[Rfam]
RNA sequence: AAAACUUUUCAAAAGAAAAAUCUGUUCUUAUCAGUUUAAUAUCUGAUACGCCCCCGAUUCGGGGGCAACGUAUUAAACGCAUUUUUAGAACAGGGAGCUGAAUAAGGGGCUCGCUCCGUUCGCUCCACGCAUCGACCCGGUAUUGCAGCGCCUCCGGGAACGGUGCCCCCUUU
Number, nucleotide and partner (000 for none) at each position: 001a000002a000003a000004a000005c000006u000007u000008u000009u000010c000011a000012a000013a000014a000015g000016a000017a000018a000019a000020a000021u000022c000023u000024g000025u000026u000027c000028u000029u048030a047031u046032c045033a044034g043035u000036u000037u000038a000039a000040u000041a000042u000043c034044u033045g032046a031047u030048a029049c000050g066051c065052c064053c063054c062055c061056g060057a000058u000059u000060c056061g055062g054063g053064g052065g051066c050067a000068a000069c000070g000071u000072a000073u000074u000075a000076a000077a000078c000079g000080c000081a000082u000083u000084u000085u000086u000087a000088g000089a000090a000091c000092a000093g000094g126095g125096a124097g123098c122099u000100g120101a119102a000103u000104a000105a000106g117107g116108g115109g114110c000111u000112c000113g000114c109115u108116c107117c106118g000119u101120u100121c000122g098123c097124u096125c095126c094127a000128c000129g166130c165131a164132u163133c162134g161135a000136c158137c157138c156139g155140g154141u000142a000143u000144u000145g000146c000147a000148g000149c000150g000151c000152c000153u000154c140155c139156g138157g137158g136159a000160a000161c134162g133163g132164u131165g130166c129167c000168c000169c000170c000171u000172u000173u000
RNA: U2 spliceosomal RNA
Organism: Oreochromis niloticus